[Rfam]
The family of this 52-nucleotide RNA sequence is "nadA riboswitch". The family's RNA type in Rfam is small RNA. For this family Rfam cites "Structure and ligand binding of the ADP-binding domain of the NAD(+) riboswitch" (Huang et al., RNA, 2020).
RNA sequence: GCUUUCAACAUCCCCGUCCGGCGCUCCACUUGGAGCUGGCUGGACUGAAGGC
Numbered sequence: 001g002c003u004u005u006c007a008a009c010a011u012c013c014c015c016g017u018c019c020g021g022c023g024c025u026c027c028a029c030u031u032g033g034a035g036c037u038g039g040c041u042g043g044a045c046u047g048a049a050g051g052c
Base pairs, nucleotide, nucleotide: 001052002051003050004049005048006047007046013038016045017044018043019042020041021040022039023037025034026033027032
The base pairs follow the family's consensus structure, which is taken from published work.